[Rfam]
RNA sequence: AAUGCAAGGGAAUAACCGUUUCGUAUAAUUCCGGGAAUCGGCCCGGAAGUUUCUACGAGGUCACCGUAAAUGAUCUGGCUACGAAAAAAAAGCGGUUCACG
Numbered sequence: 001a002a003u004g005c006a007a008g009g010g011a012a013u014a015a016c017c018g019u020u021u022c023g024u025a026u027a028a029u030u031c032c033g034g035g036a037a038u039c040g041g042c043c044c045g046g047a048a049g050u051u052u053c054u055a056c057g058a059g060g061u062c063a064c065c066g067u068a069a070a071u072g073a074u075c076u077g078g079c080u081a082c083g084a085a086a087a088a089a090a091a092g093c094g095g096u097u098c099a100c101g
Base pairs, nucleotide, nucleotide: 019086020085021084022083023082024081025080029048030047031046032045033044034043035042058076059075060074061073062072063071